RNA sequence: GGGGGAGUACGUUCGCAAGAGUGAAACUUAAAGAAAUUGACGGAAUGGCACCACAAGACGUGGAGCGUGCGGUUUAAUUUGACUCAACACGGGGAACUUUACCAGAUCCGGACAAGAUGAGGAUUGACAGAUUGAGUGUUCUUUCUCGAUUUCUUGAAUGGUGGUGCAUGGCCGCUUUUGGUCGGUGGAGUGAUUUGUUUGGUUGAUUCCGUCAACGGACGAGAUCCAAGCUGCCCAGUAGAAUCCAGAAUUGUCCAUAGGAUAGCUUACUCGCUGGUGGCUUCUUGCCAACGCGGACCGACAUUCGGUCGGAUUCUUCUCUGCGGGAUUCCCUGUUUUGCACAGGGUGAAAUUUUGGGCAACAGCAGGUCUGUGAUGCUCCUCAAUGUUCUGGGCGACACGCGCACUACAAUGUCAGUGAGAACAAGAAAAACGAUAUUUCGUCGGACCUACAUGAUCAAAAGUGUGGGGAAUCCACGGAAUCACAUAGACCCACUUGGGACCGAGGAUUGCAAUUAUUGGUCGCGCAACGAGGAAUGUCUCGUAGGCGCAGCUCAUCAAACUGUGCCGAUUACGUCCCUGCCAUUUGUACACA
Numbered sequence: 001g002g003g004g005g006a007g008u009a010c011g012u013u014c015g016c017a018a019g020a021g022u023g024a025a026a027c028u029u030a031a032a033g034a035a036a037u038u039g040a041c042g043g044a045a046u047g048g049c050a051c052c053a054c055a056a057g058a059c060g061u062g063g064a065g066c067g068u069g070c071g072g073u074u075u076a077a078u079u080u081g082a083c084u085c086a087a088c089a090c091g092g093g094g095a096a097c098u099u100u101a102c103c104a105g106a107u108c109c110g111g112a113c114a115a116g117a118u119g120a121g122g123a124u125u126g127a128c129a130g131a132u133u134g135a136g137u138g139u140u141c142u143u144u145c146u147c148g149a150u151u152u153c154u155u156g157a158a159u160g161g162u163g164g165u166g167c168a169u170g171g172c173c174g175c176u177u178u179u180g181g182u183c184g185g186u187g188g189a190g191u192g193a194u195u196u197g198u199u200u201g202g203u204u205g206a207u208u209c210c211g212u213c214a215a216c217g218g219a220c221g222a223g224a225u226c227c228a229a230g231c232u233g234c235c236c237a238g239u240a241g242a243a244u245c246c247a248g249a250a251u252u253g254u255c256c257a258u259a260g261g262a263u264a265g266c267u268u269a270c271u272c273g274c275u276g277g278u279g280g281c282u283u284c285u286u287g288c289c290a291a292c293g294c295g296g297a298c299c300g301a302c303a304u305u306c307g308g309u310c311g312g313a314u315u316c317u318u319c320u321c322u323g324c325g326g327g328a329u330u331c332c333c334u335g336u337u338u339u340g341c342a343c344a345g346g347g348u349g350a351a352a353u354u355u356u357g358g359g360c361a362a363c364a365g366c367a368g369g370u371c372u373g374u375g376a377u378g379c380u381c382c383u384c385a386a387u388g389u390u391c392u393g394g395g396c397g398a399c400a401c402g403c404g405c406a407c408u409a410c411a412a413u414g415u416c417a418g419u420g421a422g423a424a425c426a427a428g429a430a431a432a433a434c435g436a437u438a439u440u441u442c443g444u445c446g447g448a449c450c451u452a453c454a455u456g457a458u459c460a461a462a463a464g465u466g467u468g469g470g471g472a473a474u475c476c477a478c479g480g481a482a483u484c485a486c487a488u489a490g491a492c493c494c495a496c497u498u499g500g501g502a503c504c505g506a507g508g509a510u511u512g513c514a515a516u517u518a519u520u521g522g523u524c525g526c527g528c529a530a531c532g533a534g535g536a537a538u539g540u541c542u543c544g545u546a547g548g549c550g551c552a553g554c555u556c557a558u559c560a561a562a563c564u565g566u567g568c569c570g571a572u573u574a575c576g577u578c579c580c581u582g583c584c585a586u587u588u589g590u591a592c593a594c595a
Stems, first nucleotide, its partner, number of pairs: 002029003011022004038593002040590003044587007053577002057541005062410001064408002067405005072399002078093004102394005108388001113156005126145002129142003160382002163380004169376001170374001171370003174366003181220003185216002187196003200211003226358004231326004237320001240317007329349001331347006414492003418488003428475001449470002453466003458463001499531001503527001504525003509520001547569007
Dot-bracket structure: .(((......((((....))))....)))........(((((.(((((((..((..((((((.((.(((((((....((((........))))........(((((.(....(((((........((.(((........))).))......)))))...((.((((..((((((((....(((.(((((....)))...(((......)))...)).))).....((((.((((..(..(((((((................................................................)))))))..)..))))..(.((((((.....)))))).).....)))).....))).)))...).))))))).....).)))))...)).))))).)).)...(((.(((.......(....................((..(((..(....))))..))....)..........))).)))......(...((((..(..........)..))).)...).....))))).....(((((((.........)))))))......))...)))))))))).))..